A member of the RNA family "SAM riboswitch aptamer (S box leader)" from Olsenella sp. oral taxon 809, 121 nucleotides long. Pairs were carried over by alignment from the consensus structure, which is taken from published work.
[Rfam]
RNA sequence: CGCUCGUCAAGAGGCGCCGCGAGGCGCAAAGAGCUGAGGGACCGAGCCCCAUGAAGCUCCGGCAACCAGCCUCAGGGCAUGGUGCCAAAUCUCGGCAGGCCAAGGGCCUGGAAGACGGGGG
Numbered sequence: 001c002g003c004u005c006g007u008c009a010a011g012a013g014g015c016g017c018c019g020c021g022a023g024g025c026g027c028a029a030a031g032a033g034c035u036g037a038g039g040g041a042c043c044g045a046g047c048c049c050c051a052u053g054a055a056g057c058u059c060c061g062g063c064a065a066c067c068a069g070c071c072u073c074a075g076g077g078c079a080u081g082g083u084g085c086c087a088a089a090u091c092u093c094g095g096c097a098g099g100c101c102a103a104g105g106g107c108c109u110g111g112a113a114g115a116c117g118g119g120g121g
Base pairs, nucleotide, nucleotide: 001121003119004118005117006116007115008114013060014059016057017056021049023047061086062085063084064083066082067081070076071075090113096110097109098108099107100106101105
Dot-bracket structure: (.((((((....((.((...(.(.......................).)......)).))((((.((..((...))....))))))...(.....((((((...))))))..))))))).)